[Rfam]
RNA sequence: AACUUUCUUUGCGCGGGAGUGCGACCCGCAACACCGUUGAUCUGCGCGUUCAUCGACGAACACUGUGAGGAGUUCGGGGUCGUGCCGAUCUGCCGGGCACUGGCCGUGCACGGUGUGCAGAUCGCCCCG
Numbered sequence: 001a002a003c004u005u006u007c008u009u010u011g012c013g014c015g016g017g018a019g020u021g022c023g024a025c026c027c028g029c030a031a032c033a034c035c036g037u038u039g040a041u042c043u044g045c046g047c048g049u050u051c052a053u054c055g056a057c058g059a060a061c062a063c064u065g066u067g068a069g070g071a072g073u074u075c076g077g078g079g080u081c082g083u084g085c086c087g088a089u090c091u092g093c094c095g096g097g098c099a100c101u102g103g104c105c106g107u108g109c110a111c112g113g114u115g116u117g118c119a120g121a122u123c124g125c126c127c128c129g
Stems, first nucleotide, its partner, number of pairs: 013029005075129005086124002089121005
Annotation:
Rfam assigns this 129-nucleotide sequence from Mycolicibacterium chubuense to the family "ALIL pseudoknot". A search with the family's covariance model found it, with a score of 61 bits. Taxonomically the source falls in Mycolicibacterium chubuense (Bacteria, Mycobacteriales, Mycobacteriaceae, Mycobacterium (subgen. Mycolicibacterium)). The family's consensus secondary structure is taken from published work.